[Rfam]
c-di-GMP-I riboswitch aptamer: a 95-nucleotide sequence from Steroidobacter denitrificans. Pairs were carried over by alignment from the consensus structure, which is taken from published work. A search with the family's covariance model found it, with a score of 41 bits. The organism belongs to Steroidobacter, within Bacteria.
RNA sequence: UCGCUCGAAGGGCAAAGCUGCUGUAAGGCGGUGACGCAAAGCUUCCGGUCAACCGGCCAGCUCACAAUUGAGAUCUAAGUUGUGGGGUUAUUAGA
Numbered sequence: 001u002c003g004c005u006c007g008a009a010g011g012g013c014a015a016a017g018c019u020g021c022u023g024u025a026a027g028g029c030g031g032u033g034a035c036g037c038a039a040a041g042c043u044u045c046c047g048g049u050c051a052a053c054c055g056g057c058c059a060g061c062u063c064a065c066a067a068u069u070g071a072g073a074u075c076u077a078a079g080u081u082g083u084g085g086g087g088u089u090a091u092u093a094g095a
Base pairs, nucleotide, nucleotide: 012037013036017032018031019030020029021028022027040089041088042087043086045085046084047083048080050079055075056074058072